Rfam assigns this 161-nucleotide RNA sequence to the family "RT-3 RNA".
RNA sequence: AAUCGGAGACCCUAUACGCCUACGAGUUGGGCAAUUAUAUUCUCCGAGGGGUUCGCGCCUCGGCAAAAGCAUUAUAAUAUAUUAUUUAUGGAAAGCCGGAACAUAUCUUUAACCACAAGUGAGGAGGGUUUCAUAUCCUCCUCACGGGACUGGAAGGCGGU
Numbered sequence: 001a002a003u004c005g006g007a008g009a010c011c012c013u014a015u016a017c018g019c020c021u022a023c024g025a026g027u028u029g030g031g032c033a034a035u036u037a038u039a040u041u042c043u044c045c046g047a048g049g050g051g052u053u054c055g056c057g058c059c060u061c062g063g064c065a066a067a068a069g070c071a072u073u074a075u076a077a078u079a080u081a082u083u084a085u086u087u088a089u090g091g092a093a094a095g096c097c098g099g100a101a102c103a104u105a106u107c108u109u110u111a112a113c114c115a116c117a118a119g120u121g122a123g124g125a126g127g128g129u130u131u132c133a134u135a136u137c138c139u140c141c142u143c144a145c146g147g148g149a150c151u152g153g154a155a156g157g158c159g160g161u
Base pairs, nucleotide, nucleotide: 003047004046005045006044008042009041013039014038015037016035018032019031020030021029022028049059050058060099061098062097063096064095070090071089072088112161113160114159116157118151119150120149124143125139126138127137128136129135